The family of this 114-nucleotide sequence from Myotis davidii is "Potassium channel RNA editing signal". Rfam classes the family as a cis-regulatory element. A search with the family's covariance model found it, with a score of 110 bits. Rfam 15.1 lists 14,095 matches to the family in 1,000 species. The source organism's lineage runs through Eukaryota, Tetrapoda, Mammalia, Theria and Myotis. From the family's description: This family represents a group of sequences related to the human potassium channel Kv1.1 hairpin element which directs the efficient modification of an adenosine to inosine by an adenosine deaminase acting on RNA (ADAR). The ADAR modification causes an isoleucine/valine recoding event which lies in the ion-conducting pore of the potassium channel. It is thought that this editing event targets the process of fast inactivation and allows a more rapid recovery from inactivation at negative potentials. The literature on the family includes a 2004 paper in Nat Struct Mol Biol by Bhalla et al., "Control of human potassium channel inactivation by editing of a small mRNA hairpin".
RNA sequence: GUAGGCUACGGAGACAUGGUCCCGACGACCAUUGGGGGCAAGAUCGUGGGUUCCCUCUGUGCAAUCGCAGGUGUGUUAACCAUUGCCUUACCAGUCCCCGUCAUAGUGUCCAAU
Numbered sequence: 001g002u003a004g005g006c007u008a009c010g011g012a013g014a015c016a017u018g019g020u021c022c023c024g025a026c027g028a029c030c031a032u033u034g035g036g037g038g039c040a041a042g043a044u045c046g047u048g049g050g051u052u053c054c055c056u057c058u059g060u061g062c063a064a065u066c067g068c069a070g071g072u073g074u075g076u077u078a079a080c081c082a083u084u085g086c087c088u089u090a091c092c093a094g095u096c097c098c099c100g101u102c103a104u105a106g107u108g109u110c111c112a113a114u
Stems, first nucleotide, its partner, number of pairs: 001114002004111002007108003011104001013102003018097002021094001037077004050062002